[Rfam]
RNA sequence: AUGUCUAUGUAAUCGCUAUGUCCAUUUUUGGAUGUAGAGGAAAGUCCAUGCUCACACAGGCUGCGAUGCCUGUAGUGUUCGCGCUUGAUGAAAUCAUAAGUCAAGGUAGUUUUUAAUAAACUAACGGCAGACGAGCUGUACUAAGUCACUUUUUGUGAUAUGUCAGCUCUCUUGAAAGUGCCACAGUGACGUAGCUGGUUUGGAAACAUACCAGGUGGAACGAGGUAAACCCCGCGAGUGAGCAACCCAAAUAAUGGUAGGGGCAUCCUUUAGUAGGGAAUGGAACCGAACAAGGGACAGCAACAGCUGUAGAUAGAUGAUUACAACCGGCGUACAAGGCUUGACCACCGUUUGCAGUACAAUGGAACAGAACAUGGCUUACCGGA
Number, nucleotide and partner (000 for none) at each position: 001a000002u000003g000004u386005c385006u384007a000008u325009g324010u323011a322012a321013u320014c319015g000016c037017u036018a035019u034020g033021u032022c000023c000024a000025u000026u000027u000028u000029u000030g000031g000032a021033u020034g019035u018036a017037g016038a000039g000040g000041a000042a380043a379044g378045u000046c377047c376048a375049u374050g373051c242052u241053c240054a239055c238056a073057c072058a071059g070060g069061c068062u000063g000064c000065g000066a000067u000068g061069c060070c059071u058072g057073u056074a000075g000076u000077g000078u000079u237080c236081g235082c234083g233084c105085u104086u103087g102088a101089u100090g000091a000092a000093a000094u000095c000096a000097u000098a000099a000100g089101u088102c087103a086104a085105g084106g125107u123108a122109g121110u120111u119112u118113u000114u000115a000116a000117u000118a112119a111120a110121c109122u108123a107124a000125c106126g232127g231128c000129a172130g171131a170132c000133g000134a000135g000136c000137u165138g164139u000140a163141c162142u000143a000144a000145g159146u158147c157148a156149c155150u000151u000152u000153u000154u000155g149156u148157g147158a146159u145160a000161u000162g141163u140164c138165a137166g000167c000168u000169c000170u131171c130172u129173u000174g000175a000176a000177a000178g230179u229180g226181c225182c224183a000184c000185a000186g000187u000188g000189a000190c000191g000192u000193a000194g000195c214196u213197g212198g211199u210200u000201u208202g207203g000204a000205a000206a000207c202208a201209u000210a199211c198212c197213a196214g195215g000216u000217g000218g000219a000220a000221c000222g000223a000224g182225g181226u180227a000228a000229a179230c178231c127232c126233c083234g082235c081236g080237a079238g055239u054240g053241a052242g051243c000244a000245a000246c262247c261248c260249a000250a000251a000252u000253a000254a000255u000256g000257g000258u000259a000260g248261g247262g246263g000264c000265a000266u296267c295268c294269u293270u292271u000272a000273g000274u000275a000276g000277g000278g000279a000280a000281u000282g000283g000284a000285a000286c000287c000288g000289a000290a000291c000292a270293a269294g268295g267296g266297a310298c309299a308300g307301c306302a000303a000304c000305a000306g301307c300308u299309g298310u297311a000312g000313a000314u000315a000316g000317a000318u000319g014320a013321u012322u011323a010324c009325a008326a000327c365328c364329g363330g000331c000332g360333u359334a358335c357336a000337a000338g000339g000340c000341u000342u000343g000344a000345c000346c000347a000348c000349c000350g000351u000352u000353u000354g000355c000356a000357g335358u334359a333360c332361a000362a000363u329364g328365g327366a000367a000368c000369a000370g000371a000372a000373c050374a049375u048376g047377g046378c044379u043380u042381a000382c000383c000384g006385g005386a004

Shown here is a 386-nucleotide RNA from Oceanobacillus oncorhynchi, a member of the family "Bacterial RNase P class B".
By type it is a ribozyme.
Lineage of the source: Bacteria > Bacillati > Bacilli > Bacillaceae > Oceanobacillus.
A search with the family's covariance model found it, with a score of 294 bits.